[Rfam]
RNA sequence: AGUACUCAUGAGAGGACUUAUGCUGUACCCACAGCGUAGCGACUAGAACUCGCAUAGGACUUCUUUUUAAGGAGAAAACAAAUG
Numbered sequence: 001a002g003u004a005c006u007c008a009u010g011a012g013a014g015g016a017c018u019u020a021u022g023c024u025g026u027a028c029c030c031a032c033a034g035c036g037u038a039g040c041g042a043c044u045a046g047a048a049c050u051c052g053c054a055u056a057g058g059a060c061u062u063c064u065u066u067u068u069a070a071g072g073a074g075a076a077a078a079c080a081a082a083u084g
Base pairs, nucleotide, nucleotide: 001018002017003016005014006013019038020037021036022035023034024033025032039053040052041051042050

Description:
The record is an 84-nucleotide RNA sequence, which matches "freshwater-2 RNA" in Rfam. The family's consensus secondary structure is taken from published work. The sequence is in the family's curated seed alignment.